[Rfam]
RNA sequence: CCCUCUCCGUAUUCACUGCGUGCCUUGAUGUCCCACGCUCACGUACCAUAAGGCACGCGGUGAAUGCCAAGAGAA
Numbered sequence: 001c002c003c004u005c006u007c008c009g010u011a012u013u014c015a016c017u018g019c020g021u022g023c024c025u026u027g028a029u030g031u032c033c034c035a036c037g038c039u040c041a042c043g044u045a046c047c048a049u050a051a052g053g054c055a056c057g058c059g060g061u062g063a064a065u066g067c068c069a070a071g072a073g074a075a
Stems, first nucleotide, its partner, number of pairs: 003073004009067008018058003023053005030047001
Rfam assigns this 75-nucleotide RNA sequence from Haemaphysalis longicornis to the family "mir-124 microRNA precursor family".
A reference for the family is Lai et al. (2003), "Computational identification of Drosophila microRNA genes", Genome Biol.
Gene Ontology terms of the family: RISC complex and miRNA-mediated post-transcriptional gene silencing.
The organism belongs to Haemaphysalis, within Eukaryota.
The family has 122 seed sequences and 2,215 matches in Rfam 15.1.